MIR2275 microRNA precursor family: a 92-nucleotide RNA from Rosa chinensis.
A search with the family's covariance model found it, with a score of 64 bits.
The organism belongs to Rosa, within Eukaryota.

RNA sequence: AAGUCGUAUGUGAGAGUUGGAGGAUACCAAACAAAUUCACCUCAUAAUAACCGCAAUUUGUUUGGUUUUCUCCAACAUCUCAUCUCCGACUA
Numbered sequence: 001a002a003g004u005c006g007u008a009u010g011u012g013a014g015a016g017u018u019g020g021a022g023g024a025u026a027c028c029a030a031a032c033a034a035a036u037u038c039a040c041c042u043c044a045u046a047a048u049a050a051c052c053g054c055a056a057u058u059u060g061u062u063u064g065g066u067u068u069u070c071u072c073c074a075a076c077a078u079c080u081c082a083u084c085u086c087c088g089a090c091u092a
Base pairs, nucleotide, nucleotide: 004089005088006087008085011082012081013080014079016076017075018074019073020072021071023069024068026066027065028064029063030062032060033059

Background:
The family has 13 seed sequences and 785 matches in Rfam 15.1.